Description
Shown here is a 178-nucleotide RNA sequence from Leptolyngbya sp. Heron Island J, a member of the family "Antisense RNA which regulates isiA expression". A search with the family's covariance model found it, with a score of 87 bits.
RNA sequence: GAUAUCCAUAGAUUGUCGCCAAAUCUAAUGUUGGCUGACUAAUCAAACGGACAUUGCCCACAGUAGGAUCAUACAGCCCGUGCCAUUGGGUAGCCCAGAGCACCAGACCUAAUGCACCCAUACCUAAAAAGAGAAGAUGAUGCCCUAAAAUGAGUCCCAACUUCUUAGGGUCGUCCCA
Numbered sequence: 001g002a003u004a005u006c007c008a009u010a011g012a013u014u015g016u017c018g019c020c021a022a023a024u025c026u027a028a029u030g031u032u033g034g035c036u037g038a039c040u041a042a043u044c045a046a047a048c049g050g051a052c053a054u055u056g057c058c059c060a061c062a063g064u065a066g067g068a069u070c071a072u073a074c075a076g077c078c079c080g081u082g083c084c085a086u087u088g089g090g091u092a093g094c095c096c097a098g099a100g101c102a103c104c105a106g107a108c109c110u111a112a113u114g115c116a117c118c119c120a121u122a123c124c125u126a127a128a129a130a131g132a133g134a135a136g137a138u139g140a141u142g143c144c145c146u147a148a149a150a151u152g153a154g155u156c157c158c159a160a161c162u163u164c165u166u167a168g169g170g171u172c173g174u175c176c177c178a
Stems, first nucleotide, its partner, number of pairs: 136175006144169005